[Rfam]
RNA sequence: AAAUACUUAUUCCAUAAGACUUAUAUAAGACUGAUAAUAUGGUUCAGUCGUUUCUACCGAAUACCGUAAAUAUUCGACUAUGAGUUAUCUGAGGAUUAAU
Numbered sequence: 001a002a003a004u005a006c007u008u009a010u011u012c013c014a015u016a017a018g019a020c021u022u023a024u025a026u027a028a029g030a031c032u033g034a035u036a037a038u039a040u041g042g043u044u045c046a047g048u049c050g051u052u053u054c055u056a057c058c059g060a061a062u063a064c065c066g067u068a069a070a071u072a073u074u075c076g077a078c079u080a081u082g083a084g085u086u087a088u089c090u091g092a093g094g095a096u097u098a099a100u
Stems, first nucleotide, its partner, number of pairs: 018086008029049006058076006
Purine riboswitch aptamer: a 100-nucleotide RNA sequence from Clostridium collagenovorans. The family's consensus secondary structure is taken from published work.